[Rfam]
A member of the RNA family "Group II catalytic intron D1-D4-4" from Sorangium cellulosum, 138 nucleotides long. The organism belongs to Sorangium cellulosum, within Bacteria. Pairs were carried over by alignment from the consensus structure.
RNA sequence: CAUAGGGUGAAAGUCCCGAAGCGGCAGAAGGUCGAAGCCGCGUAGCUUGGGUGGCGCCCGGCGGGGAGAUCCCCCGGGUGAAGCCCACCGACAAAGCCCCGCAUGGCGGGGUGAGCGAGCGCGCGGGCCGCAACGAGG
Numbered sequence: 001c002a003u004a005g006g007g008u009g010a011a012a013g014u015c016c017c018g019a020a021g022c023g024g025c026a027g028a029a030g031g032u033c034g035a036a037g038c039c040g041c042g043u044a045g046c047u048u049g050g051g052u053g054g055c056g057c058c059c060g061g062c063g064g065g066g067a068g069a070u071c072c073c074c075c076g077g078g079u080g081a082a083g084c085c086c087a088c089c090g091a092c093a094a095a096g097c098c099c100c101g102c103a104u105g106g107c108g109g110g111g112u113g114a115g116c117g118a119g120c121g122c123g124c125g126g127g128c129c130g131c132a133a134c135g136a137g138g
Stems, first nucleotide, its partner, number of pairs: 021041004050089005055080006064071002096112006115131003
From the family's description: Group II introns are found in rRNA, tRNA and mRNA of organelles in fungi, plants and protists, and also in mRNA in bacteria. Rfam 15.1 lists 840 matches to the family in 506 species.